[Rfam]
RNA sequence: GCCGCGAUCACGCCGAAUCCCUGGCAGGAAAGCCGGGGACCGGGGGACCCAAAUGUUGUGUGGGGCGAAUUUCGUGGUUCAUCCACGAGAAGCGCAGGCUCUUUCCGCGCUAGCCCGUCAGCUAACCCCGGAGGCCCACGAAAGAGGUAGC
Numbered sequence: 001g002c003c004g005c006g007a008u009c010a011c012g013c014c015g016a017a018u019c020c021c022u023g024g025c026a027g028g029a030a031a032g033c034c035g036g037g038g039a040c041c042g043g044g045g046g047a048c049c050c051a052a053a054u055g056u057u058g059u060g061u062g063g064g065g066c067g068a069a070u071u072u073c074g075u076g077g078u079u080c081a082u083c084c085a086c087g088a089g090a091a092g093c094g095c096a097g098g099c100u101c102u103u104u105c106c107g108c109g110c111u112a113g114c115c116c117g118u119c120a121g122c123u124a125a126c127c128c129c130g131g132a133g134g135c136c137c138a139c140g141a142a143a144g145a146g147g148u149a150g151c
Base pairs, nucleotide, nucleotide: 012135013134014133018039019038020037021036022035023034024033025032040131041130042129043128044127045126050062051061063116064115065114071089072088073087074086092110093109094108095107

c-di-AMP riboswitch aptamer (ydaO/yuaA leader): a 151-nucleotide RNA from Capillimicrobium parvum. A search with the family's covariance model found it, with a score of 75 bits.